[Rfam]
RNA sequence: GCAAAGAAAAAAGCGCCGGGACUGCCUGCGGGCAGUUGACGAGGUGGGGGAGGAUCGAACCAUUCGGCGGAUGCCCCCUGCGCAUUGACGCCUGGCCAUGAAGCAGAGGAGAGAAAAAGGGCGGGUGACCGCCGUGACAACAUCCCUGCAGGCGUUAAU
Dot-bracket structure: ...................(((((((....)))))))........(((((....((((.....))))......)))))((..((........))..))....((((.(((.......(.(((((....))))).).......)))))))..........
RNA: glmS glucosamine-6-phosphate activated ribozyme aptamer
Organism: Ruminococcaceae bacterium AM28-23LB